[Rfam]
RNA: MIR2118 microRNA precursor family
Organism: Triticum turgidum
RNA sequence: GCUAGGAAGAUGAAGAAAGAGAGGUUGUAAGAGCAGUGGGAAUGAGAACAUAGAGGAAAGCCUAACUUACUGAUUCUUCGUCUCUUGUCUUGAGGUGGGAAUGCAGUUUGGCAUUUCCCGAUGCCUCUCAUCCCUAUCGUUCUUAGGCGCUCCCUCAUCUUCCUUUUUGAU
Numbered sequence: 001g002c003u004a005g006g007a008a009g010a011u012g013a014a015g016a017a018a019g020a021g022a023g024g025u026u027g028u029a030a031g032a033g034c035a036g037u038g039g040g041a042a043u044g045a046g047a048a049c050a051u052a053g054a055g056g057a058a059a060g061c062c063u064a065a066c067u068u069a070c071u072g073a074u075u076c077u078u079c080g081u082c083u084c085u086u087g088u089c090u091u092g093a094g095g096u097g098g099g100a101a102u103g104c105a106g107u108u109u110g111g112c113a114u115u116u117c118c119c120g121a122u123g124c125c126u127c128u129c130a131u132c133c134c135u136a137u138c139g140u141u142c143u144u145a146g147g148c149g150c151u152c153c154c155u156c157a158u159c160u161u162c163c164u165u166u167u168u169g170a171u
Base pairs, nucleotide, nucleotide: 009162010161012159013158015156016155021152022151023150026147028145029144030143031142032141033140034139037136038135039134040133042131043130044129045128046127047126049123050122051121053119055118056117057116058115059114060112061111